[Rfam]
RNA sequence: ACCCCUUGGGGAGUAGCCUGCCUCGUUGCGACGAGGCGUCUUCGUCAACAUGCUCGGCACGUCUGCCGUGGCGAAGACACCGAUCCUGGUUGGCGAGACCAACGGCUGACGGCGCCACGACGGUGGGGCGCGCCGUCGUGCCGUUGCGUCCAGCCCCGUCGUU
Numbered sequence: 001a002c003c004c005c006u007u008g009g010g011g012a013g014u015a016g017c018c019u020g021c022c023u024c025g026u027u028g029c030g031a032c033g034a035g036g037c038g039u040c041u042u043c044g045u046c047a048a049c050a051u052g053c054u055c056g057g058c059a060c061g062u063c064u065g066c067c068g069u070g071g072c073g074a075a076g077a078c079a080c081c082g083a084u085c086c087u088g089g090u091u092g093g094c095g096a097g098a099c100c101a102a103c104g105g106c107u108g109a110c111g112g113c114g115c116c117a118c119g120a121c122g123g124u125g126g127g128g129c130g131c132g133c134c135g136u137c138g139u140g141c142c143g144u145u146g147c148g149u150c151c152a153g154c155c156c157c158g159u160c161g162u163u
Stems, first nucleotide, its partner, number of pairs: 020037003038078010055068005083163001
RNA: Manganese Mn2+ riboswitch aptamer (yybP-ykoY)